[Rfam]
RNA sequence: AGGUUAUAUCAAAAACUCUGUGAAACAUGUGUAUGCGUAAGGCUAUACGGUCAUGUGCUUCUGUCACUUGAGUCGGAUACAGGCUUGUGGGAUACUUCAAGUUUAGACUUUGCGGAGGUAGGUAACCAAUCCGCAGAAGGAGUUAAAUGACUCCAACAGAAAACAGAAUGGCGCUUGAGUGUUUUGCAAUCAAAAAGCAACGUCUUGUCGCUUCCAUAAUAGACGCCCCUGUGGGGAAGAACCGAGAACACCUAACCGGGUGGUGCCGAGUAGGAGAAAGCUCGGAAUACCAACAAGGAAGUUUGCAGUUGCGGUGACGUAAGUUGCCUAUAAGACAAGGUCGGUGUGCGAGUAGCCCAAAUCUGCAACGAUUUUAACAGAUGAGUAUUUUAAUAUUUGGAAAUAUGUAAUCUUCUGAAUAGUGGGUGAAAGUUGCGGGUAAGCAAUCCCGCGGUAGAGCUGGCAAUUAUGCUGGGGUAAGAAGCUAUGGGGUCGCUCCCUAUGGUUCAGACUUAUCUCCUACGUGGCUGAAUAUUGGGGCAUUACACAAGAGUAAGGCGAAAGUCUCUCAUAGUUUUUGAUGUAGC
Dot-bracket structure: ...........((((.(....(..(((((......((((......))))..))))).((((((.......((((.(..(....((.(.((....)).).))).).))))((((((.(.(.(....).).)))))))..(((((......))))).........))))).)........(...(......((.(..((..((((((((((((((((...........(((....))).....(((((.....(((..(((.[[[[.)))..))).......)))))...]]]]....)))))).[[[[[....(((((......))))).....))))))))..))...(.....(((((...]]]]]..............................................[[[[.....)))))....).....((.........))...((((..............).((((..((..(.(((((((.....)))))))..)]]]].))..))))))).....).....)).)).....)..........((((....))))))....).))))........
Numbered sequence: 001a002g003g004u005u006a007u008a009u010c011a012a013a014a015a016c017u018c019u020g021u022g023a024a025a026c027a028u029g030u031g032u033a034u035g036c037g038u039a040a041g042g043c044u045a046u047a048c049g050g051u052c053a054u055g056u057g058c059u060u061c062u063g064u065c066a067c068u069u070g071a072g073u074c075g076g077a078u079a080c081a082g083g084c085u086u087g088u089g090g091g092a093u094a095c096u097u098c099a100a101g102u103u104u105a106g107a108c109u110u111u112g113c114g115g116a117g118g119u120a121g122g123u124a125a126c127c128a129a130u131c132c133g134c135a136g137a138a139g140g141a142g143u144u145a146a147a148u149g150a151c152u153c154c155a156a157c158a159g160a161a162a163a164c165a166g167a168a169u170g171g172c173g174c175u176u177g178a179g180u181g182u183u184u185u186g187c188a189a190u191c192a193a194a195a196a197g198c199a200a201c202g203u204c205u206u207g208u209c210g211c212u213u214c215c216a217u218a219a220u221a222g223a224c225g226c227c228c229c230u231g232u233g234g235g236g237a238a239g240a241a242c243c244g245a246g247a248a249c250a251c252c253u254a255a256c257c258g259g260g261u262g263g264u265g266c267c268g269a270g271u272a273g274g275a276g277a278a279a280g281c282u283c284g285g286a287a288u289a290c291c292a293a294c295a296a297g298g299a300a301g302u303u304u305g306c307a308g309u310u311g312c313g314g315u316g317a318c319g320u321a322a323g324u325u326g327c328c329u330a331u332a333a334g335a336c337a338a339g340g341u342c343g344g345u346g347u348g349c350g351a352g353u354a355g356c357c358c359a360a361a362u363c364u365g366c367a368a369c370g371a372u373u374u375u376a377a378c379a380g381a382u383g384a385g386u387a388u389u390u391u392a393a394u395a396u397u398u399g400g401a402a403a404u405a406u407g408u409a410a411u412c413u414u415c416u417g418a419a420u421a422g423u424g425g426g427u428g429a430a431a432g433u434u435g436c437g438g439g440u441a442a443g444c445a446a447u448c449c450c451g452c453g454g455u456a457g458a459g460c461u462g463g464c465a466a467u468u469a470u471g472c473u474g475g476g477g478u479a480a481g482a483a484g485c486u487a488u489g490g491g492g493u494c495g496c497u498c499c500c501u502a503u504g505g506u507u508c509a510g511a512c513u514u515a516u517c518u519c520c521u522a523c524g525u526g527g528c529u530g531a532a533u534a535u536u537g538g539g540g541c542a543u544u545a546c547a548c549a550a551g552a553g554u555a556a557g558g559c560g561a562a563a564g565u566c567u568c569u570c571a572u573a574g575u576u577u578u579u580g581a582u583g584u585a586g587c
Stems, first nucleotide, its partner, number of pairs: 012579004017574001022569001025056005036049004058170001059168005071109004076104001079102001084101002087098001089096002110136006117130001119128001121126001139154005179568001183545001190539002193536001196535001197529001200345002202341008210302006227236003242285005252273003257268003261292004304367005313328005349432001355427005414511004438450002454523003457472001474520004480514002484507001486504007556567004
Description:
Rfam assigns this 587-nucleotide sequence to the family "ROOL RNA". Pairs were carried over by alignment from the consensus structure, which is taken from published work. By type it is a small RNA.